[Rfam]
Rfam assigns this 76-nucleotide RNA from Ornithorhynchus anatinus to the family "mir-30 microRNA precursor family". This family consists of the mammalian microRNA (miRNA) precursor mir-30a. Rfam links the family to the GO terms RISC complex and gene silencing by miRNA. The literature on the family includes a 2001 paper in Science by Lagos-Quintana et al., "Identification of novel genes coding for small expressed RNAs". Taxonomically the source falls in Ornithorhynchus (Eukaryota, Metazoa, Craniata, Tetrapoda).
RNA sequence: UCUGUGGCUGUAAACAUCCCCGACUGGAAGCUGUAAAAUACCUUCAAGCUUUCAGUCAGAUGUUUGCUACCACUGG
Numbered sequence: 001u002c003u004g005u006g007g008c009u010g011u012a013a014a015c016a017u018c019c020c021c022g023a024c025u026g027g028a029a030g031c032u033g034u035a036a037a038a039u040a041c042c043u044u045c046a047a048g049c050u051u052u053c054a055g056u057c058a059g060a061u062g063u064u065u066g067c068u069a070c071c072a073c074u075g076g
Base pairs, nucleotide, nucleotide: 002075004073005072006071010067011066012065013064014063015062016061017060018059023056024055025054026053027052028051029050030049031048032047